[Rfam]
RNA: THF (Tetrahydrofolate) riboswitch aptamer
Organism: Ligilactobacillus apodemi
RNA sequence: GUAGGGGUAGGAAUUUAUGCGUUACGGGCUUGUGGAACGGAAUGUGAACACAGGCAGAAAGCUAAACCGUCAUUUUAGCUGCGUGUAUCUUCCGCAUUCACCAAU
Numbered sequence: 001g002u003a004g005g006g007g008u009a010g011g012a013a014u015u016u017a018u019g020c021g022u023u024a025c026g027g028g029c030u031u032g033u034g035g036a037a038c039g040g041a042a043u044g045u046g047a048a049c050a051c052a053g054g055c056a057g058a059a060a061g062c063u064a065a066a067c068c069g070u071c072a073u074u075u076u077a078g079c080u081g082c083g084u085g086u087a088u089c090u091u092c093c094g095c096a097u098u099c100a101c102c103a104a105u
Stems, first nucleotide, its partner, number of pairs: 001105002004102002010093004016087007027055001029054006040099005060080007